Shown here is an 80-nucleotide RNA sequence from Platysternon megacephalum, a member of the family "Small nucleolar RNA SNORD20". From the family's description: U20 is a C/D box small nucleolar RNA that is encoded in intron 11 of the nucleolin gene in human, mouse and rat. Its family is annotated with nucleolus and RNA processing in the Gene Ontology.
[Rfam]
RNA sequence: UGGAAUUGAUGAACACUCACUGAAAUGAUGUGAGGAAAAUCACAAUGAAAGUUUCUCAAGAUAGUCAAGUACUGAUCCAG
Numbered sequence: 001u002g003g004a005a006u007u008g009a010u011g012a013a014c015a016c017u018c019a020c021u022g023a024a025a026u027g028a029u030g031u032g033a034g035g036a037a038a039a040u041c042a043c044a045a046u047g048a049a050a051g052u053u054u055c056u057c058a059a060g061a062u063a064g065u066c067a068a069g070u071a072c073u074g075a076u077c078c079a080g
Stems, first nucleotide, its partner, number of pairs: 001079004
Dot-bracket structure: ((((.......................................................................)))).
The pairing is the family consensus, mapped onto this sequence.